This 134-nucleotide RNA from Brassica cretica belongs to the Rfam family "MIR9563 microRNA precursor family".
The family's consensus secondary structure was predicted with RNAalifold.
Taxonomically the source falls in Brassica (Eukaryota, Streptophyta, Streptophytina, Embryophyta).

RNA sequence: CGGAUAUAAGAAACCGUCUCUUAACUUUUAAUUAAAAAAGCUAAGAGCCAGAUAUUUAAGAGCCGUCUCUUAUCUAUUUACGAGCUGCUCUUAGCCUUUUUACUUAAAAGUUAAGAGACGGUUUUUUAUAUCCC
Numbered sequence: 001c002g003g004a005u006a007u008a009a010g011a012a013a014c015c016g017u018c019u020c021u022u023a024a025c026u027u028u029u030a031a032u033u034a035a036a037a038a039a040g041c042u043a044a045g046a047g048c049c050a051g052a053u054a055u056u057u058a059a060g061a062g063c064c065g066u067c068u069c070u071u072a073u074c075u076a077u078u079u080a081c082g083a084g085c086u087g088c089u090c091u092u093a094g095c096c097u098u099u100u101u102a103c104u105u106a107a108a109a110g111u112u113a114a115g116a117g118a119c120g121g122u123u124u125u126u127u128a129u130a131u132c133c134c
Stems, first nucleotide, its partner, number of pairs: 002133030033102006041094007